[Rfam]
RNA sequence: UGUUAAAAUUUUCAUCCAUUUGUAUUGUUAAAAAUUGGCGUGGUUGAUAGAAUAACCAAACAGUGACAUGUGAUGUACCUCGUGUACCUCAUGCUAAUGUACAGGGACCAAGUUUUAACAGCAGAAAUGGAUGAAAUUUUUAACA
Number, nucleotide and partner (000 for none) at each position: 001u000002g144003u143004u142005a141006a140007a139008a138009u000010u136011u135012u134013c133014a132015u131016c130017c000018a128019u127020u126021u125022g000023u123024a000025u121026u120027g000028u118029u117030a116031a115032a114033a113034a000035u000036u000037g000038g000039c000040g000041u000042g000043g000044u000045u000046g000047a000048u000049a000050g000051a000052a000053u000054a000055a000056c000057c000058a000059a000060a000061c000062a000063g000064u000065g000066a000067c000068a000069u000070g000071u000072g000073a000074u000075g000076u000077a000078c000079c000080u000081c000082g000083u000084g000085u000086a000087c000088c000089u000090c000091a000092u000093g000094c000095u000096a000097a000098u000099g000100u000101a000102c000103a000104g000105g000106g000107a000108c000109c000110a000111a000112g000113u033114u032115u031116u030117a029118a028119c000120a026121g025122c000123a023124g000125a021126a020127a019128u018129g000130g016131a015132u014133g013134a012135a011136a010137u000138u008139u007140u006141u005142a004143a003144c002145a000

The record is a 145-nucleotide RNA sequence from Gossypium raimondii, which matches "MIR7502 microRNA precursor family" in Rfam. A search with the family's covariance model found it, with a score of 126 bits. Its family is annotated with miRNA-mediated post-transcriptional gene silencing and RISC complex in the Gene Ontology.